[Rfam]
RNA sequence: GCGGUUUUCUGCGGAAAGUAAUUGAUGAAGACAAACCCCCUCGUCUGGUCGAUGAUAUGAAAGAGCGGGUUCCAGUCGAACAUGUUGACCAUGAACGGCGGCAGGGUGUUCACCACGAACAUCUUGCCCGAUGCAAUCAUGUUCGCGCGCUG
Dot-bracket structure: ..(.((((...(((.......)))...)))))..(.(.(..(.....)..)..).).......((((.((((.....))))....(((.((((....((((((((((.((......))..)))))).))).).....)))).)))..)))).
Numbered sequence: 001g002c003g004g005u006u007u008u009c010u011g012c013g014g015a016a017a018g019u020a021a022u023u024g025a026u027g028a029a030g031a032c033a034a035a036c037c038c039c040c041u042c043g044u045c046u047g048g049u050c051g052a053u054g055a056u057a058u059g060a061a062a063g064a065g066c067g068g069g070u071u072c073c074a075g076u077c078g079a080a081c082a083u084g085u086u087g088a089c090c091a092u093g094a095a096c097g098g099c100g101g102c103a104g105g106g107u108g109u110u111c112a113c114c115a116c117g118a119a120c121a122u123c124u125u126g127c128c129c130g131a132u133g134c135a136a137u138c139a140u141g142u143u144c145g146c147g148c149g150c151u152g
Stems, first nucleotide, its partner, number of pairs: 003032001005031004012024003035056001037054001039051001042048001064151004069081004086145003090141004098132001099130003102126006109118002
Background
A member of the RNA family "Ruegeria cis2 sRNA" from Roseovarius azorensis, 152 nucleotides long. Its family is annotated with regulation of gene expression in the Gene Ontology. For this family Rfam cites "Experimental Identification of Small Non-Coding RNAs in the Model Marine Bacterium Ruegeria pomeroyi DSS-3" (Rivers et al., Front Microbiol, 2016). Taxonomically the source falls in Roseovarius (Bacteria, Pseudomonadati, Pseudomonadota, Roseobacteraceae). The match comes from Rfam's covariance-model search (80 bits).